Source information: A member of the RNA family "Small nucleolar RNA snoR60" from Oryza sativa, 75 nucleotides long. Pairs were carried over by alignment from the consensus structure, which was predicted with PFOLD. Rfam's curators put it in the seed alignment. The organism belongs to Oryza sativa, within Eukaryota. Gene Ontology terms of the family: RNA processing and nucleolus. For this family Rfam cites "Fibrillarin genes encode both a conserved nucleolar protein and a novel small nucleolar RNA involved in ribosomal RNA methylation in Arabidopsis thaliana" (Barneche et al., J Biol Chem, 2000).

[Rfam]
RNA sequence: CUGCAAAUGAUGAGCUUACUCGGAUUCCCCUUCAGGACAUCAAAUUGGAUGAUGCAAAUUCGAGUUCCUGAUGCG
Numbered sequence: 001c002u003g004c005a006a007a008u009g010a011u012g013a014g015c016u017u018a019c020u021c022g023g024a025u026u027c028c029c030c031u032u033c034a035g036g037a038c039a040u041c042a043a044a045u046u047g048g049a050u051g052a053u054g055c056a057a058a059u060u061c062g063a064g065u066u067c068c069u070g071a072u073g074c075g
Stems, first nucleotide, its partner, number of pairs: 002075004